[Rfam]
RNA sequence: GGUAUGAAGAUGAGAAUUGGAUGAAACCAAAUCCCUCCUUCCUGUUGGGUUUGGUUUCCUCCAAUAUCUCACCUUCAAAGU
Numbered sequence: 001g002g003u004a005u006g007a008a009g010a011u012g013a014g015a016a017u018u019g020g021a022u023g024a025a026a027c028c029a030a031a032u033c034c035c036u037c038c039u040u041c042c043u044g045u046u047g048g049g050u051u052u053g054g055u056u057u058c059c060u061c062c063a064a065u066a067u068c069u070c071a072c073c074u075u076c077a078a079a080g081u
Stems, first nucleotide, its partner, number of pairs: 005077004011071004016065006023058008032049002

Record summary
MIR2275 microRNA precursor family: an 81-nucleotide RNA sequence from Papaver somniferum. The match comes from Rfam's covariance-model search (64 bits). The organism belongs to Papaver, within Eukaryota.